[Rfam]
This 83-nucleotide RNA from Pan troglodytes belongs to the Rfam family "mir-1244 microRNA precursor family". Lineage of the source: Eukaryota > Opisthokonta > Gnathostomata > Sarcopterygii > Pan. It is one of the family's seed sequences.
RNA sequence: UCUUAUUCCGAGCAUUCCAGUAACUUUUUUGUGUAUGUACUCAGCUGUACUAUAAGUAGUUGGUUUGUAUGAGAUGGUUAAAA
Numbered sequence: 001u002c003u004u005a006u007u008c009c010g011a012g013c014a015u016u017c018c019a020g021u022a023a024c025u026u027u028u029u030u031g032u033g034u035a036u037g038u039a040c041u042c043a044g045c046u047g048u049a050c051u052a053u054a055a056g057u058a059g060u061u062g063g064u065u066u067g068u069a070u071g072a073g074a075u076g077g078u079u080a081a082a083a
Stems, first nucleotide, its partner, number of pairs: 001074006012068003017063004023057003032054004037050004